This 75-nucleotide sequence from Microvirga makkahensis belongs to the Rfam family "Makes More Granules Regulator RNA (mmgR)". It scores 73 bits against the family's covariance model. A reference for the family is Corbino et al. (2005), "Evidence for a second class of S-adenosylmethionine riboswitches and other regulatory RNA motifs in alpha-proteobacteria", Genome Biol. By type it is a small RNA.
[Rfam]
RNA sequence: UGUCGUAGCCCUUCUUGGGCGUUUCCUCCCUAAACUUCGGGCCGCCGGUAACGGUGGCCUUUUUUCUUUUUCAGG
Numbered sequence: 001u002g003u004c005g006u007a008g009c010c011c012u013u014c015u016u017g018g019g020c021g022u023u024u025c026c027u028c029c030c031u032a033a034a035c036u037u038c039g040g041g042c043c044g045c046c047g048g049u050a051a052c053g054g055u056g057g058c059c060u061u062u063u064u065u066c067u068u069u070u071u072c073a074g075g
Stems, first nucleotide, its partner, number of pairs: 008020004039060009
About the family: SuhB later renamed mmgR (makes more granules regulator) was a putative non-coding RNA found multiple times in the Agrobacterium tumefaciens genome and related alpha-proteobacteria. Other non-coding RNAs uncovered in the same analysis include: speF, ybhL, metA, and serC.Several studies inSinorhizobium meliloti showed that suhB element is indeed a non-coding RNA:firstly it was detected on Northern blot and called Sm8RNA, secondly in an RNAseq study referred to as SmelC689.The mutant phenotype's (strain lacking the small RNA) cytoplasm contains higher content of polyhydroxybutyrate (PBH)storage granules than wild type strain. The sRNA is required to limit the PBH intracellular accumulation when the nitrogen-fixing Sinorhizobium meliloti is under condition of surplus carbon in relation to nitrogen. It has been renamed to mmgR. Further study confirmed that mmgR fine-tunes the regulation of PBH storage.Northern blot confirmed the expression of the sRNA in other rhizobia species. MmgR homologues were found in most alpha-proteobacteria. NCBI's taxonomy places the organism under Bacteria, Pseudomonadati, Alphaproteobacteria, Hyphomicrobiales, Microvirga.